[Rfam]
RNA sequence: AGCUUUGUGCAGUGGCAGUAUCAUAGCCAAUGAGGUUUAUCCGAGGCGCGAUUAUUGCUAAUUGAAAUUAUACCAUGUGUCUUGUGUCUUUGACUCAUCAUUUUGUCUGAGGAAUUUAGCCAUAUUUUUGAGUGAAGCAAUGGUUU
Numbered sequence: 001a002g003c004u005u006u007g008u009g010c011a012g013u014g015g016c017a018g019u020a021u022c023a024u025a026g027c028c029a030a031u032g033a034g035g036u037u038u039a040u041c042c043g044a045g046g047c048g049c050g051a052u053u054a055u056u057g058c059u060a061a062u063u064g065a066a067a068u069u070a071u072a073c074c075a076u077g078u079g080u081c082u083u084g085u086g087u088c089u090u091u092g093a094c095u096c097a098u099c100a101u102u103u104u105g106u107c108u109g110a111g112g113a114a115u116u117u118a119g120c121c122a123u124a125u126u127u128u129u130g131a132g133u134g135a136a137g138c139a140a141u142g143g144u145u146u
Stems, first nucleotide, its partner, number of pairs: 020052003024048001026047003034042002082122001084120001085118002089114003135146004
Rfam assigns this 146-nucleotide RNA from Neogale vison to the family "U4 spliceosomal RNA". It is annotated as a spliceosomal small nuclear RNA. Gene Ontology terms of the family: spliceosomal tri-snRNP complex assembly and U4 snRNP. About the family: U4 small nuclear RNA (U4 snRNA) is a component of the major U2-dependent spliceosome. Clan: U4 clan. Rfam 15.1 lists 32,178 matches to the family in 2,547 species.